[Rfam]
RNA sequence: AUCUUUGUGCUUGGGGUAAUGACGCAGCUAGUGAGGUGAUAACCGAGGCGCGUCAAUUGCUGGUUGAAAACUAUUUCCAAACCCCCUUUUCGGCCUAGGCUUGACCUUGGCCGUUAAGAAUUUCUGGAAGGGCUCCUUCAUCAGAGGGUAAAGCC
Number, nucleotide and partner (000 for none) at each position: 001a000002u000003c000004u000005u000006u000007g000008u000009g000010c000011u000012u000013g000014g000015g000016g000017u000018a000019a000020u000021g054022a053023c052024g051025c050026a000027g049028c048029u047030a000031g000032u000033g000034a000035g044036g043037u042038g000039a000040u000041a000042a037043c036044c035045g000046a000047g029048g028049c027050g025051c024052g023053u022054c021055a000056a000057u000058u000059g000060c000061u000062g000063g000064u000065u000066g000067a000068a000069a000070a000071c000072u000073a000074u000075u000076u000077c000078c000079a000080a000081a000082c000083c000084c000085c000086c000087u118088u117089u116090u000091c113092g112093g111094c110095c109096u000097a107098g106099g105100c000101u000102u000103g000104a000105c099106c098107u097108u000109g095110g094111c093112c092113g091114u000115u000116a089117a088118g087119a000120a000121u000122u000123u000124c000125u000126g000127g000128a000129a000130g000131g155132g154133c153134u152135c000136c000137u000138u000139c000140a000141u000142c000143a000144g000145a000146g000147g000148g000149u000150a000151a000152a134153g133154c132155c131
A member of the RNA family "U4 spliceosomal RNA" from Carnegiea gigantea, 155 nucleotides long. The match comes from Rfam's covariance-model search (107 bits). Pairs were carried over by alignment from the consensus structure, which is taken from published work. The family has 177 seed sequences and 32,178 matches in Rfam 15.1. From the family's description: U4 small nuclear RNA (U4 snRNA) is a component of the major U2-dependent spliceosome. The organism belongs to Carnegiea, within Eukaryota.